Rfam assigns this 36-nucleotide sequence from Synechococcus sp. JA-2-3B'a(2-13) to the family "CRISPR RNA direct repeat element".

[Rfam]
RNA sequence: GGUUCCCCCCUUGGGGGAUCCCUAGAAAUUGGAAAG
Numbered sequence: 001g002g003u004u005c006c007c008c009c010c011u012u013g014g015g016g017g018a019u020c021c022c023u024a025g026a027a028a029u030u031g032g033a034a035a036g
Base pairs, nucleotide, nucleotide: 004017005016006015007014008013